[Rfam]
RNA sequence: GCGAGGCUGCGACGCGCGUCCGGAGCCAUAUAUCCCCGGGGCCUUAUCGAUCCUUUAGGGAACUGUCCCUGGCCGGGCCCGUGGGCCCGGACAUAUGGUGCCCACCUACUUUCGUAGGGAACUCCGGGAUCGAGUGCUUCAACGGCGUCCGCGGCUUCGCA
Numbered sequence: 001g002c003g004a005g006g007c008u009g010c011g012a013c014g015c016g017c018g019u020c021c022g023g024a025g026c027c028a029u030a031u032a033u034c035c036c037c038g039g040g041g042c043c044u045u046a047u048c049g050a051u052c053c054u055u056u057a058g059g060g061a062a063c064u065g066u067c068c069c070u071g072g073c074c075g076g077g078c079c080c081g082u083g084g085g086c087c088c089g090g091a092c093a094u095a096u097g098g099u100g101c102c103c104a105c106c107u108a109c110u111u112u113c114g115u116a117g118g119g120a121a122c123u124c125c126g127g128g129a130u131c132g133a134g135u136g137c138u139u140c141a142a143c144g145g146c147g148u149c150c151g152c153g154g155c156u157u158c159g160c161a
Stems, first nucleotide, its partner, number of pairs: 002159010012148004017144003033129004038124003042119002058103003062099005073090005

Shown here is a 161-nucleotide RNA sequence from Bradyrhizobium diazoefficiens, a member of the family "6S / SsrS RNA". By type it is a non-coding RNA gene. E. coli 6S RNA was the first non coding RNA to be sequenced, but its function was unknown until recently. Lineage of the source: Bacteria > Pseudomonadota > Alphaproteobacteria > Bradyrhizobium > Bradyrhizobium diazoefficiens.